[Rfam]
RNA sequence: GGUCAGUGAUGAGAAGUAAAAGGUCUGACUGCACUGAGAAAUCACAUUCCCUCUUGCGGCCUUCACAGCUCCCAGCAGCCCAUCAUUUCUUACCCAGGCACGAUUAAGACAUGCUGUCCUUGGGAUGGUGGAGCCGCUGACAGCUGGGGACGUGUUCAGUGUGCGCUCCCACAAGGAGGAGGGAAGGACAUGCUGGGCUGCUGUCCAACAGAACCUUUCCAGAGGAGCUUGGAGUGGAGUGCCACAGGAAUGUGGUGGUGCGUGAUCUCAAGUUUUCAAGCUGAGACC
Numbered sequence: 001g002g003u004c005a006g007u008g009a010u011g012a013g014a015a016g017u018a019a020a021a022g023g024u025c026u027g028a029c030u031g032c033a034c035u036g037a038g039a040a041a042u043c044a045c046a047u048u049c050c051c052u053c054u055u056g057c058g059g060c061c062u063u064c065a066c067a068g069c070u071c072c073c074a075g076c077a078g079c080c081c082a083u084c085a086u087u088u089c090u091u092a093c094c095c096a097g098g099c100a101c102g103a104u105u106a107a108g109a110c111a112u113g114c115u116g117u118c119c120u121u122g123g124g125a126u127g128g129u130g131g132a133g134c135c136g137c138u139g140a141c142a143g144c145u146g147g148g149g150a151c152g153u154g155u156u157c158a159g160u161g162u163g164c165g166c167u168c169c170c171a172c173a174a175g176g177a178g179g180a181g182g183g184a185a186g187g188a189c190a191u192g193c194u195g196g197g198c199u200g201c202u203g204u205c206c207a208a209c210a211g212a213a214c215c216u217u218u219c220c221a222g223a224g225g226a227g228c229u230u231g232g233a234g235u236g237g238a239g240u241g242c243c244a245c246a247g248g249a250a251u252g253u254g255g256u257g258g259u260g261c262g263u264g265a266u267c268u269c270a271a272g273u274u275u276u277c278a279a280g281c282u283g284a285g286a287c288c
Stems, first nucleotide, its partner, number of pairs: 001288004036269003041266003049241001051239004069227004073139004078134002093124001094122001097120002100117003147206001149205003152201003162190002166186002169183002
Dot-bracket structure: ((((...............................(((..(((.....(.((((..............((((((((.((.............((..((.(((............))).)).).)........)).)))).......(.((((((.......((..((.((...........)).))..))........))).)))).................))))........)))).)......................))))))...............))))
Notes
This 288-nucleotide RNA from Phascolarctos cinereus belongs to the Rfam family "Small Cajal body specific RNA 6". Its family is annotated with RNA processing and nucleolus in the Gene Ontology. By type it is a small Cajal body RNA. It scores 106 bits against the family's covariance model. The literature on the family includes a 2002 paper in EMBO J by Darzacq et al., "Cajal body-specific small nuclear RNAs: a novel class of 2'-O-methylation and pseudouridylation guide RNAs". Rfam describes the family as follows. U88 is small Cajal body specific RNA (scaRNA). scaRNAs are a novel class of small nuclear RNAs which localise to the Cajal bodies. U88 is found associated with both fibrillarin and Gar1p and co-localises with coilin in Cajal bodies. The source organism's lineage runs through Eukaryota, Eumetazoa, Gnathostomata, Theria and Phascolarctos.